[Rfam]
RNA sequence: UACGGCUGAGUAUUACAUCAGGUACUGGUGUGCUUUAAAUCCAACAACCAGUACUUAUGUUAUACUACGCCGUG
Dot-bracket structure: ((((((..((((..((((..(((((((((.................))))))))).))))..))))..))))))
This 74-nucleotide RNA from Drosophila persimilis belongs to the Rfam family "mir-12 microRNA precursor family". The family's consensus secondary structure was predicted with RNAalifold. Gene Ontology terms of the family: RISC complex and miRNA-mediated post-transcriptional gene silencing. The sequence is in the family's curated seed alignment. The source organism's lineage runs through Eukaryota, Protostomia, Aparaglossata, Ephydroidea and Sophophora.